The family of this 91-nucleotide RNA sequence from Rhynchophorus ferrugineus is "mir-2944 microRNA precursor family". The family's consensus secondary structure was predicted with RNAalifold. Rfam 15.1 lists 66 matches to the family in 42 species.
RNA sequence: CGGGGAAUCUGGCUUGAAGGAACUUCUGGUGUGAUAUGUGCCGUUCGAGAUCGUAUCACAGCCAGUAGUUACCUACGAAACGGAUUCCCAG
Numbered sequence: 001c002g003g004g005g006a007a008u009c010u011g012g013c014u015u016g017a018a019g020g021a022a023c024u025u026c027u028g029g030u031g032u033g034a035u036a037u038g039u040g041c042c043g044u045u046c047g048a049g050a051u052c053g054u055a056u057c058a059c060a061g062c063c064a065g066u067a068g069u070u071a072c073c074u075a076c077g078a079a080a081c082g083g084a085u086u087c088c089c090a091g
Base pairs, nucleotide, nucleotide: 003089004088005087006086007085008084009083010082011081018074019073020072021070022069023068024067026065027064028062030060031059032058033057034056035055036054037053038052